This 141-nucleotide RNA sequence belongs to the Rfam family "skipping-rope RNA". Rfam classes the family as a small RNA.

RNA sequence: GGGUGUUGAGGUCGGAAAUGGCUCCCGACACUCCCUUGUAUGAGGAUAGAACGGGCAUCUAUCACCUAUAUGGGUAAUGCGUGAGUGCCGACACGCCGCAAGGGAACCUGAGAUGUAGGAUACGCCGCCCUACCAACAUCC
Numbered sequence: 001g002g003g004u005g006u007u008g009a010g011g012u013c014g015g016a017a018a019u020g021g022c023u024c025c026c027g028a029c030a031c032u033c034c035c036u037u038g039u040a041u042g043a044g045g046a047u048a049g050a051a052c053g054g055g056c057a058u059c060u061a062u063c064a065c066c067u068a069u070a071u072g073g074g075u076a077a078u079g080c081g082u083g084a085g086u087g088c089c090g091a092c093a094c095g096c097c098g099c100a101a102g103g104g105a106a107c108c109u110g111a112g113a114u115g116u117a118g119g120a121u122a123c124g125c126c127g128c129c130c131u132a133c134c135a136a137c138a139u140c141c
Stems, first nucleotide, its partner, number of pairs: 001141008011029005019127004031110001032105008115133005
Dot-bracket structure: ((((((((..(((((...[[[[..))))).(((((((((..........................................................))))))))....)....(((((....]]]].)))))))))))))